RNA sequence: UUGGCAAAGGAUGAUGAUACAAAUUAGAUGUCUGAAAAUUUAUGAAGUAUAAACUAUCGAGGCUUAUUGAUAUUCUGACUUUUGCCAG
Numbered sequence: 001u002u003g004g005c006a007a008a009g010g011a012u013g014a015u016g017a018u019a020c021a022a023a024u025u026a027g028a029u030g031u032c033u034g035a036a037a038a039u040u041u042a043u044g045a046a047g048u049a050u051a052a053a054c055u056a057u058c059g060a061g062g063c064u065u066a067u068u069g070a071u072a073u074u075c076u077g078a079c080u081u082u083u084g085c086c087a088g
Stems, first nucleotide, its partner, number of pairs: 001088008009079001
Shown here is an 88-nucleotide RNA from Apium graveolens, a member of the family "Small nucleolar RNA Z266". Gene Ontology terms of the family: nucleolus and RNA processing. Rfam 15.1 lists 719 matches to the family in 213 species. It scores 48 bits against the family's covariance model.